[Rfam]
RNA sequence: AAUGCGGUGCCCGGCGGAUGGCCCGGGUGGCGGCAUUGCCUGCUAGAGAGGU
Numbered sequence: 001a002a003u004g005c006g007g008u009g010c011c012c013g014g015c016g017g018a019u020g021g022c023c024c025g026g027g028u029g030g031c032g033g034c035a036u037u038g039c040c041u042g043c044u045a046g047a048g049a050g051g052u
Stems, first nucleotide, its partner, number of pairs: 001037005007031002011026004015021001
About this RNA:
A member of the RNA family "L31-Gammaproteobacteria ribosomal protein leader" from Halovibrio salipaludis, 52 nucleotides long. The literature on the family includes a 2020 paper in BMC Microbiol by Eckert and Weinberg, "Discovery of 20 novel ribosomal leader candidates in bacteria and archaea". Rfam classes the family as a cis-regulatory leader. It scores 42 bits against the family's covariance model. Clan: Ribosomal Protein L31 Leader clan. The base pairs follow the family's consensus structure, which is taken from published work.